[Rfam]
RNA sequence: AUUCGCCUUGCGGGAGAGAUCGGGUCAGCCUGCAGCCCACCGACACAUACGUCGGUGGAAACGAUCCGGCGCCGAAGGAGCAACCGCCCCGGAAACUCUCAGGCAGAAGGACCGUAAGGCGACG
Numbered sequence: 001a002u003u004c005g006c007c008u009u010g011c012g013g014g015a016g017a018g019a020u021c022g023g024g025u026c027a028g029c030c031u032g033c034a035g036c037c038c039a040c041c042g043a044c045a046c047a048u049a050c051g052u053c054g055g056u057g058g059a060a061a062c063g064a065u066c067c068g069g070c071g072c073c074g075a076a077g078g079a080g081c082a083a084c085c086g087c088c089c090c091g092g093a094a095a096c097u098c099u100c101a102g103g104c105a106g107a108a109g110g111a112c113c114g115u116a117a118g119g120c121g122a123c124g
Base pairs, nucleotide, nucleotide: 006119007118008117009116010115011114012113013112020069021068022067023066024065025064026063071104072103073102074100075099078098079097080096084092085091